[Rfam]
RNA sequence: AGUAUGGAGAGUUUGAUUCUGGCUCAGAGCGAACGUUGGCGAUGCGUCUUAAGCAUGCAAGUCGAGCGGGCUUAUUCGGGCAACUGGAUAAGUUAGCGGCGAACUGGUGAGUAACACGUAGGUAAUCUGCCGUAGAGUGGGGGAUAACCCAUGGAAACAUGGACUAAUACCGCAUAUACUCUUGCUACACAAGUAGAGUAGAGGAAAGGAGCGAUCCGCUUUACGAUGAGCCUGCGGCCUAUUAGCCUGUUGGUGGGGUAACGGCCUACCAAAGCUACGAUAGGUAGCCGACCUGAGAGGGUGACCGGCCACAUUGGGACUGAGAUACGGCCCAGACUCCUACGGGAGGCAGCAGCUGAGAAUCUUCCACAAUGGACGAAAGUCUGAUGGAGCGACAUCGCGUGAGGGAUGAAGGCCUUCGGGUUGUAAACCUCGGAAAUUAUCGAAGAAUGAGUGACAGUAGAUAAUGUAAGCCUCGGCUAACUACGUGCCAGCAGCCGCGGUAAUACGUAGGAGGCAAACGUUGCUCGGAUUUACUG
Numbered sequence: 001a002g003u004a005u006g007g008a009g010a011g012u013u014u015g016a017u018u019c020u021g022g023c024u025c026a027g028a029g030c031g032a033a034c035g036u037u038g039g040c041g042a043u044g045c046g047u048c049u050u051a052a053g054c055a056u057g058c059a060a061g062u063c064g065a066g067c068g069g070g071c072u073u074a075u076u077c078g079g080g081c082a083a084c085u086g087g088a089u090a091a092g093u094u095a096g097c098g099g100c101g102a103a104c105u106g107g108u109g110a111g112u113a114a115c116a117c118g119u120a121g122g123u124a125a126u127c128u129g130c131c132g133u134a135g136a137g138u139g140g141g142g143g144a145u146a147a148c149c150c151a152u153g154g155a156a157a158c159a160u161g162g163a164c165u166a167a168u169a170c171c172g173c174a175u176a177u178a179c180u181c182u183u184g185c186u187a188c189a190c191a192a193g194u195a196g197a198g199u200a201g202a203g204g205a206a207a208g209g210a211g212c213g214a215u216c217c218g219c220u221u222u223a224c225g226a227u228g229a230g231c232c233u234g235c236g237g238c239c240u241a242u243u244a245g246c247c248u249g250u251u252g253g254u255g256g257g258g259u260a261a262c263g264g265c266c267u268a269c270c271a272a273a274g275c276u277a278c279g280a281u282a283g284g285u286a287g288c289c290g291a292c293c294u295g296a297g298a299g300g301g302u303g304a305c306c307g308g309c310c311a312c313a314u315u316g317g318g319a320c321u322g323a324g325a326u327a328c329g330g331c332c333c334a335g336a337c338u339c340c341u342a343c344g345g346g347a348g349g350c351a352g353c354a355g356c357u358g359a360g361a362a363u364c365u366u367c368c369a370c371a372a373u374g375g376a377c378g379a380a381a382g383u384c385u386g387a388u389g390g391a392g393c394g395a396c397a398u399c400g401c402g403u404g405a406g407g408g409a410u411g412a413a414g415g416c417c418u419u420c421g422g423g424u425u426g427u428a429a430a431c432c433u434c435g436g437a438a439a440u441u442a443u444c445g446a447a448g449a450a451u452g453a454g455u456g457a458c459a460g461u462a463g464a465u466a467a468u469g470u471a472a473g474c475c476u477c478g479g480c481u482a483a484c485u486a487c488g489u490g491c492c493a494g495c496a497g498c499c500g501c502g503g504u505a506a507u508a509c510g511u512a513g514g515a516g517g518c519a520a521a522c523g524u525u526g527c528u529c530g531g532a533u534u535u536a537c538u539g
Base pairs, nucleotide, nucleotide: 009025010024011023012022013021027529028528029527030526032525033524034523035522036521037520039401040400041399042398043397044396045394046393047359052357053356054355056354057353058352061100062099063098066097067096070093071092073090074089075088076087077086078085079084107312108311109310117236118235119234120233121232122231123230126229127228131225132224133223134222135221136220137219139173141171142170149162150161151160152159153158179203180202181201182200183198185196186195187194188193208217209216210215238284239283240282245275246274250272251271252270253269254268255267256266257265287309288308289307290306291302292301293300294299314335315334316333317332318331337348338347339346340345365391367390368389369388373386374385375384376383377382404434405433406432407431414425415424416423417422438470439468440467441466442465443464444463448458473518474517475516476515477514484513485512486511487510488509494501495500
RNA: Bacterial small subunit ribosomal RNA, nucleotides 1 to 539